RNA sequence: UGUCUCCUCUAUGUCUCCUCCUUUGAUAUAGAUUCAGCCCGCUCCCGCAGCGGGCUUUUUUUU
Numbered sequence: 001u002g003u004c005u006c007c008u009c010u011a012u013g014u015c016u017c018c019u020c021c022u023u024u025g026a027u028a029u030a031g032a033u034u035c036a037g038c039c040c041g042c043u044c045c046c047g048c049a050g051c052g053g054g055c056u057u058u059u060u061u062u063u
Stems, first nucleotide, its partner, number of pairs: 008032008036056008
Rfam assigns this 63-nucleotide sequence from Oxalicibacterium flavum to the family "Betaproteobacteria toxic small RNA". From the family's description: Overexpression in amino aid rich medium attenuates growth, suggesting role in repressing amino acid intake and metabolism. Rfam 15.1 lists 951 matches to the family in 508 species.